[Rfam]
RNA sequence: CGCACCGUGUACUCCCAGAUGGUCUCCGGGUCGAUGAGGGCCUGCUCGCCGAAGUACGCCCCGUCGGCGAGCGUUCCGAGGACGGUGUCGUCGCCGUACGGCCCGGUGCCGAUCUUCUCGGCCCUGCCGUGGGCGAGCAGGAACACCUCGUCCGCCUGGUUGCCGAACGACGUGAGGACCCCGCCGGCCUCGAACUCCCGCUGCUGGCAGCGACGGGCCAGCUCGGUGAGCACCUCCUGGUCCUCGAAGUCCCGCAGGACCGGCAGUUCGCCCAGCUCCGCCGGGAUCACCUCGACACGGUCCCCGGUCUUGACGAACGUGACCCGGCCGUCACCGACCGAAUAGCUCGUCCUGCGGUUCACGCGAUAUGUGCCGCCCUGCACCUGCACCCAGGGCAGCAUCCGCAGCAGCCAGCGGGAGCUGAUCUCCUGCAUCUGCGGCGCGGACUUGGUGGUGGUGGCCAGAUUCCGCGCGGCGGAUGUGCCGAGACUCUGCUGCGGCGUGUCCU
Number, nucleotide and partner (000 for none) at each position: 001c000002g000003c000004a000005c000006c000007g389008u388009g387010u386011a385012c000013u000014c000015c000016c380017a000018g328019a000020u000021g325022g324023u000024c000025u322026c321027c000028g000029g318030g000031u316032c315033g000034a000035u313036g000037a311038g310039g309040g308041c307042c306043u000044g000045c000046u000047c000048g302049c300050c299051g298052a000053a000054g233055u232056a000057c230058g000059c228060c000061c226062c225063g224064u000065c111066g110067g109068c108069g000070a000071g000072c000073g103074u000075u000076c101077c100078g099079a000080g000081g000082a097083c096084g095085g094086u093087g000088u000089c000090g000091u000092c000093g086094c085095c084096g083097u082098a000099c078100g077101g076102c000103c073104c000105g000106g000107u000108g068109c067110c066111g065112a000113u000114c000115u000116u000117c000118u221119c000120g219121g000122c217123c216124c000125u000126g000127c212128c000129g000130u209131g000132g205133g204134c203135g202136a000137g000138c000139a000140g198141g197142a000143a196144c000145a000146c000147c000148u000149c192150g191151u000152c000153c000154g189155c000156c187157u186158g185159g184160u183161u178162g000163c000164c000165g000166a173167a000168c000169g000170a000171c000172g000173u166174g000175a000176g000177g000178a161179c000180c000181c000182c000183g160184c159185c158186g157187g156188c000189c154190u000191c150192g149193a000194a000195c000196u143197c141198c140199c000200g000201c000202u135203g134204c133205u132206g000207g000208c000209a130210g000211c000212g127213a000214c000215g000216g123217g122218c000219c120220a000221g118222c000223u000224c063225g062226g061227u000228g059229a000230g057231c000232a055233c054234c000235u295236c294237c000238u000239g000240g290241u289242c000243c000244u286245c285246g000247a000248a000249g000250u000251c000252c280253c000254g278255c000256a277257g276258g000259a000260c000261c270262g269263g000264c000265a000266g000267u000268u000269c262270g261271c000272c000273c000274a000275g000276c257277u256278c254279c000280g252281c000282c000283g000284g000285g245286a244287u000288c000289a241290c240291c000292u000293c000294g236295a235296c000297a000298c051299g050300g049301u000302c048303c000304c000305c000306g042307g041308u040309c039310u038311u037312g000313a035314c000315g032316a031317a000318c029319g000320u000321g026322a025323c000324c022325c021326g000327g000328c018329c000330g000331u340332c000333a000334c000335c000336g000337a000338c000339c000340g331341a000342a000343u000344a000345g000346c000347u000348c000349g000350u000351c000352c000353u000354g376355c375356g374357g373358u000359u000360c372361a371362c370363g369364c000365g000366a000367u000368a000369u363370g362371u361372g360373c357374c356375g355376c354377c000378c000379u000380g016381c000382a000383c000384c000385u011386g010387c009388a008389c007390c000391c431392a430393g429394g428395g427396c000397a425398g000399c423400a422401u000402c000403c418404g000405c416406a000407g415408c000409a000410g000411c000412c000413a000414g000415c407416g405417g000418g403419a000420g000421c000422u400423g399424a000425u397426c000427u395428c394429c393430u392431g391432c000433a000434u000435c000436u000437g476438c475439g000440g473441c000442g471443c470444g469445g468446a467447c000448u464449u463450g462451g461452u460453g000454g000455u000456g000457g000458u000459g000460g452461c451462c450463a449464g448465a000466u000467u446468c445469c444470g443471c442472g000473c440474g000475g438476c437477g507478g506479a000480u502481g501482u500483g000484c499485c000486g000487a496488g495489a000490c000491u000492c000493u000494g000495c488496u487497g000498c000499g484500g482501c481502g480503u000504g000505u000506c478507c477508u000
Shown here is a 508-nucleotide sequence from Streptomyces aurantiacus, a member of the family "Saccharopolyspora sRNA 350". The organism belongs to Streptomyces aurantiacus, within Bacteria. By type it is an antisense RNA. Pairs were carried over by alignment from the consensus structure, which was predicted with RNAfold. Rfam links the family to the GO term regulation of secondary metabolite biosynthetic process.